[Rfam]
RNA sequence: GGGCUGGCUUUAGCUCAGCGGUUACUUCGACGAGCAUUCUCCACAAUCAACACGCGCAGCUUUCAGCUGUGCAGUUGGUUCGAAACCCGCGGGCGCUCUCCAGCCCUUUU
Dot-bracket structure: .((((((.....((((.((((....(((((.................................................)))))..)))))))).....)))))).....